[Rfam]
RNA sequence: CCACAAGGUUGGGGGUGCUUACUUCUGUGAGCUGAGAUCAUACCCCAAGACCUGAUCCGGGUAAUACCGGCGUAGGGAAACCUUUCGGAUGAAUC
Numbered sequence: 001c002c003a004c005a006a007g008g009u010u011g012g013g014g015g016u017g018c019u020u021a022c023u024u025c026u027g028u029g030a031g032c033u034g035a036g037a038u039c040a041u042a043c044c045c046c047a048a049g050a051c052c053u054g055a056u057c058c059g060g061g062u063a064a065u066a067c068c069g070g071c072g073u074a075g076g077g078a079a080a081c082c083u084u085u086c087g088g089a090u091g092a093a094u095c
Stems, first nucleotide, its partner, number of pairs: 006083005011046004016040001017032005051076004057070004
RNA: TPP riboswitch aptamer (THI element)
Organism: Cyclonatronum proteinivorum